[Rfam]
RNA sequence: UCAAAUCACCAUCAUCCUGAUUAGUCUUUAAGGCCGUUGGUGGUGGAAGACGUUCGGAUCUUCCAGUGGCGCAGAACCUAAAGAGAGCCCUCGGAAGAUCAUCUUCCGAGGGCUUUUUUAU
Numbered sequence: 001u002c003a004a005a006u007c008a009c010c011a012u013c014a015u016c017c018u019g020a021u022u023a024g025u026c027u028u029u030a031a032g033g034c035c036g037u038u039g040g041u042g043g044u045g046g047a048a049g050a051c052g053u054u055c056g057g058a059u060c061u062u063c064c065a066g067u068g069g070c071g072c073a074g075a076a077c078c079u080a081a082a083g084a085g086a087g088c089c090c091u092c093g094g095a096a097g098a099u100c101a102u103c104u105u106c107c108g109a110g111g112g113c114u115u116u117u118u119u120a121u
Base pairs, nucleotide, nucleotide: 007042008041009040010039011038013036016033017032018031020029044065045064046063047062048061049060050059082118083117084116085115086114087113088112089111090110091109092108093107094106095105096104097103

Rfam assigns this 121-nucleotide RNA from Candidatus Symbiopectobacterium sp. PLON1 to the family "Histidine operon leader". Rfam links the family to the GO term histidine biosynthetic process. Taxonomically the source falls in Symbiopectobacterium (Bacteria, Pseudomonadota, Gammaproteobacteria, Enterobacterales). The family's RNA type in Rfam is cis-regulatory leader.